[Rfam]
The family of this 111-nucleotide RNA sequence from Tranquillimonas rosea is "Methylobacterium-1 RNA". By type it is a small RNA.
RNA sequence: AAAGGUAGACUGGCUGACGAAAAAUUCCUACCGUGACGAGGGCAAUGCUGCACUGUAACCCUCAUGCUCAAACGAAGUCGCUCCAAUGGCUCGUUUCGAGUAACCGUCAGG
Numbered sequence: 001a002a003a004g005g006u007a008g009a010c011u012g013g014c015u016g017a018c019g020a021a022a023a024a025u026u027c028c029u030a031c032c033g034u035g036a037c038g039a040g041g042g043c044a045a046u047g048c049u050g051c052a053c054u055g056u057a058a059c060c061c062u063c064a065u066g067c068u069c070a071a072a073c074g075a076a077g078u079c080g081c082u083c084c085a086a087u088g089g090c091u092c093g094u095u096u097c098g099a100g101u102a103a104c105c106g107u108c109a110g111g
Stems, first nucleotide, its partner, number of pairs: 004032005011024001038063005065102005070096005076091004